[Rfam]
RNA sequence: AAGCGUUCUCAGGGCAGGGUGCAACUCCCUACCGGCGGUGAUGGCGGGCCUGCGGGCCGGCACGAGCCCGCGAGCGCCGGCCAACCGCGGCACCCUUUCCUGCAAGGGCGCCGCGGGUGGCCGGGUCAGCAGACCCGGUGCGAUCCCGGGGCCGACGGUGACAGUCCGGAUGAAAGAGAACGCGC
Dot-bracket structure: ..((((((((......(((.......))).[[((((((...........................[[))))..((.....................................................))...(((((.......)))))]])).(((.....]]))).......))))))))..
RNA: FMN riboswitch aptamer (RFN element)
Organism: Xylophilus sp. Leaf220